[Rfam]
RNA sequence: UUGUCCCCUGAAGUUCCCUCAGACACUUCAUUAGGCUGUUCUCUUGAAUAUAGGAGAGCAAAAGCCCUACUGAAGUGUUUGGGGGAACUCUGGGUGUCAC
Numbered sequence: 001u002u003g004u005c006c007c008c009u010g011a012a013g014u015u016c017c018c019u020c021a022g023a024c025a026c027u028u029c030a031u032u033a034g035g036c037u038g039u040u041c042u043c044u045u046g047a048a049u050a051u052a053g054g055a056g057a058g059c060a061a062a063a064g065c066c067c068u069a070c071u072g073a074a075g076u077g078u079u080u081g082g083g084g085g086a087a088c089u090c091u092g093g094g095u096g097u098c099a100c
Stems, first nucleotide, its partner, number of pairs: 005096001007094003012089019032069004
The record is a 100-nucleotide sequence from Cocos nucifera, which matches "mir-395 microRNA precursor family" in Rfam.
The base pairs follow the family's consensus structure, which was predicted with PFOLD.
Rfam 15.1 lists 2,798 matches to the family in 234 species.
It scores 70 bits against the family's covariance model.
On this family, see Jones-Rhoades and Bartel, Mol Cell 2004: "Computational Identification of Plant MicroRNAs and Their Targets, Including a Stress-Induced miRNA".
Rfam describes the family as follows. mir-395 was identified in both Arabidopsis thaliana and Oryza sativa computationally and was later experimentally verified. mir-395 is thought to target mRNAs coding for ATP sulphurylases.